[Rfam]
Nucleotides: 065
Stems, first nucleotide, its partner, number of pairs: 010025004016056003020052002033046004
Number, partner (000 for none) and nucleotide at each position: 001000u002000c003000c004000g005000a006000u007000u008000u009000c010025g011024g012023c013022a014000a015000u016056g017055g018054a019000u020052u021051c022013u023012g024011c025010c026000u027000u028000u029000a030000a031000c032000c033046g034045c035044c036043c037000u038000u039000c040000g041000u042000g043036g044035g045034g046033c047000u048000g049000a050000u051021g052020a053000c054018u055017c056016c057000u058000a059000c060000u061000u062000g063000g064000a065000a
The record is a 65-nucleotide RNA sequence from Bacteroides graminisolvens, which matches "Fluoride riboswitch aptamer (crcB RNA motif)" in Rfam. It scores 54 bits against the family's covariance model. NCBI's taxonomy places the organism under Bacteria, Pseudomonadati, Bacteroidia, Bacteroidales, Bacteroides graminisolvens.